[Rfam]
RNA sequence: UUAGCUAUUUUAGAUAGGGUUUGUAUCUAUAGAUUGUUACGUUUUUACUAACAUAGAUACAAAUCACACCGAUUAUGUGUUUUGUAUCUAUGUUGGCUAAAGACUUUUGUGUUUUUAAUAAUAGCCUCAUAGAUAAUGCUAAGAGGCUAUAUCCUAGGUAAAAAAAUAGCCUCAUAGCAUAGCUGUGGGGCUAUUUUUAUUUAUAAA
Numbered sequence: 001u002u003a004g005c006u007a008u009u010u011u012a013g014a015u016a017g018g019g020u021u022u023g024u025a026u027c028u029a030u031a032g033a034u035u036g037u038u039a040c041g042u043u044u045u046u047a048c049u050a051a052c053a054u055a056g057a058u059a060c061a062a063a064u065c066a067c068a069c070c071g072a073u074u075a076u077g078u079g080u081u082u083u084g085u086a087u088c089u090a091u092g093u094u095g096g097c098u099a100a101a102g103a104c105u106u107u108u109g110u111g112u113u114u115u116u117a118a119u120a121a122u123a124g125c126c127u128c129a130u131a132g133a134u135a136a137u138g139c140u141a142a143g144a145g146g147c148u149a150u151a152u153c154c155u156a157g158g159u160a161a162a163a164a165a166a167u168a169g170c171c172u173c174a175u176a177g178c179a180u181a182g183c184u185g186u187g188g189g190g191c192u193a194u195u196u197u198u199a200u201u202u203a204u205a206a207a
Base pairs, nucleotide, nucleotide: 001100002099003098004097005096006095007094011090012089013088014087015086016085018067020063021062022061023060024059025058026057027056028055029054030053070084071083072082105163106162107161110160111159112158113157123148124147125146126145127144128143130141131140132139165195166194167193168192169191170190171189172188173187174186
RNA: Enterococcus sRNA 2410
Organism: Clostridium frigidicarnis